[Rfam]
RNA sequence: GUGAGGGUGACCGAGCGUGGGGAGGAAGCGUGGAGCAUAAGCUGCGAGCCGAUGAACAAGAAUCGGAUAGAAGGCGUCAUCAAGCAGGGCGAGCGGGCAAAAAGCCGUGAAGCUGUUGUGAUCAAGGCGAGGUGGCGUAAAUCCGGCGGUUGUGCAGUGAAGGAGUGCGUUC
Numbered sequence: 001g002u003g004a005g006g007g008u009g010a011c012c013g014a015g016c017g018u019g020g021g022g023a024g025g026a027a028g029c030g031u032g033g034a035g036c037a038u039a040a041g042c043u044g045c046g047a048g049c050c051g052a053u054g055a056a057c058a059a060g061a062a063u064c065g066g067a068u069a070g071a072a073g074g075c076g077u078c079a080u081c082a083a084g085c086a087g088g089g090c091g092a093g094c095g096g097g098c099a100a101a102a103a104g105c106c107g108u109g110a111a112g113c114u115g116u117u118g119u120g121a122u123c124a125a126g127g128c129g130a131g132g133u134g135g136c137g138u139a140a141a142u143c144c145g146g147c148g149g150u151u152g153u154g155c156a157g158u159g160a161a162g163g164a165g166u167g168c169g170u171u172c
Base pairs, nucleotide, nucleotide: 001016002015005012006011028172030170031169032168036163041158042157043156044155045154046153047151048150049149050148051147063146064145065144066143067142068141074138075137076136078134079133080132081131088114089113090112093108094107095106096105
Background:
A member of the RNA family "Group II catalytic intron D1-D4-3" from Neopusillimonas aestuarii, 172 nucleotides long. The pairing is the family consensus, mapped onto this sequence. Lineage of the source: Bacteria > Pseudomonadati > Pseudomonadota > Burkholderiales > Neopusillimonas.